Rfam assigns this 126-nucleotide RNA from Rhizobium sp. BK376 to the family "Alphaproteobacterial ar14".
RNA sequence: CGAAUUGCAAACGUCCUACUCCUCCUCCCAGGGGCGUUUGCGGGAACAGCAACACUCCUCCUCCCAGUUGCUGUUCGGUUUUUCAGGAAAAGCCUGCCGCACCUCCUCCCGCGGCAGGCUUUUUCG
Numbered sequence: 001c002g003a004a005u006u007g008c009a010a011a012c013g014u015c016c017u018a019c020u021c022c023u024c025c026u027c028c029c030a031g032g033g034g035c036g037u038u039u040g041c042g043g044g045a046a047c048a049g050c051a052a053c054a055c056u057c058c059u060c061c062u063c064c065c066a067g068u069u070g071c072u073g074u075u076c077g078g079u080u081u082u083u084c085a086g087g088a089a090a091a092g093c094c095u096g097c098c099g100c101a102c103c104u105c106c107u108c109c110c111g112c113g114g115c116a117g118g119c120u121u122u123u124u125c126g
Stems, first nucleotide, its partner, number of pairs: 007041003011037007044076010090121011
Background
By type it is a small RNA. For this family Rfam cites "A survey of sRNA families in alpha-proteobacteria" (del Val et al., RNA Biol, 2012). A search with the family's covariance model found it, with a score of 111 bits. Smr14C2 was renamed NfeR1 (Nodule Formation Efficiency RNA) highly expressed in salt stress and during the symbiotic interaction on legume roots. Taxonomically the source falls in Rhizobium (Bacteria, Alphaproteobacteria, Hyphomicrobiales, Rhizobiaceae).